[Rfam]
RNA sequence: GAUAGGUCUGUGUCGAUACUGUGAUUGGACACUGACGCUGGGUCAACUAGCCUUGUACGCGCGGUUCUUCGCGCGUUGAACCGCCCGGCGGUUCGAGGCAUGAGGGGGGAGCCUCGAACCGCCCGCG
Numbered sequence: 001g002a003u004a005g006g007u008c009u010g011u012g013u014c015g016a017u018a019c020u021g022u023g024a025u026u027g028g029a030c031a032c033u034g035a036c037g038c039u040g041g042g043u044c045a046a047c048u049a050g051c052c053u054u055g056u057a058c059g060c061g062c063g064g065u066u067c068u069u070c071g072c073g074c075g076u077u078g079a080a081c082c083g084c085c086c087g088g089c090g091g092u093u094c095g096a097g098g099c100a101u102g103a104g105g106g107g108g109g110a111g112c113c114u115c116g117a118a119c120c121g122c123c124c125g126c127g
Base pairs, nucleotide, nucleotide: 001014002013003012004011015051017049018048021032022031023030033045034044035043036042058075059074060073061072062071063070064069076083087123088122089121090120091119092118093117094116095115096114097113098112099111101108

The family of this 127-nucleotide RNA sequence from Streptomyces daliensis is "Streptomyces RNA 3920". Rfam's curators write: Identified by deep sequencing of transcriptome at the end of exponential growth phase. Sequencing size consistent with northern blot size. The literature on the family includes a 2011 paper in RNA Biol by Vockenhuber et al., "Deep sequencing-based identification of small non-coding RNAs in Streptomyces coelicolor". The pairing is the family consensus, mapped onto this sequence.